[Rfam]
RNA sequence: AACGUUCAUCUCACUGUAUUCGGUAGUUAAGCAAGUCACCAGGAAUGACAGCGGGACGGAAGUAAGGAGAGAUCCUGAAGGAACGCGCC
Numbered sequence: 001a002a003c004g005u006u007c008a009u010c011u012c013a014c015u016g017u018a019u020u021c022g023g024u025a026g027u028u029a030a031g032c033a034a035g036u037c038a039c040c041a042g043g044a045a046u047g048a049c050a051g052c053g054g055g056a057c058g059g060a061a062g063u064a065a066g067g068a069g070a071g072a073u074c075c076u077g078a079a080g081g082a083a084c085g086c087g088c089c
Stems, first nucleotide, its partner, number of pairs: 003085005009056004059086001065076003